A member of the RNA family "Plastid-rpl16 group II-D1 intron" from Utricularia macrorhiza, 47 nucleotides long. Rfam 15.1 lists 1,446 matches to the family in 693 species. From the family's description: Plastid-rpl16 is a non-coding RNA (ncRNA) recognised in plastids. It was recognised in and intronic region of a ribosome rpl16 gene. It is one of the family's seed sequences. Rfam links the family to the GO term Group II intron splicing. For this family Rfam cites "Retrograde signaling in plants: A critical review focusing on the GUN pathway and beyond" (Richter et al., Plant Commun, 2023).
RNA sequence: AAGAGCUUCGAGCCGAUAAAGACUAAGAGGAUUGACUCAAAAUAAAA
Numbered sequence: 001a002a003g004a005g006c007u008u009c010g011a012g013c014c015g016a017u018a019a020a021g022a023c024u025a026a027g028a029g030g031a032u033u034g035a036c037u038c039a040a041a042a043u044a045a046a047a
Base pairs, nucleotide, nucleotide: 007041008040010038011037012036014034015033016032017031